[Rfam]
RNA: Small nucleolar RNA SNORD59
RNA sequence: CCUCAUUGAUGAACAGUUUCUGACUUUCGUUCUUCUGAGUUUGCUGAAGCCAGAUGCUCUUCCUGAGAAGG
Numbered sequence: 001c002c003u004c005a006u007u008g009a010u011g012a013a014c015a016g017u018u019u020c021u022g023a024c025u026u027u028c029g030u031u032c033u034u035c036u037g038a039g040u041u042u043g044c045u046g047a048a049g050c051c052a053g054a055u056g057c058u059c060u061u062c063c064u065g066a067g068a069a070g071g
Stems, first nucleotide, its partner, number of pairs: 001071003004067001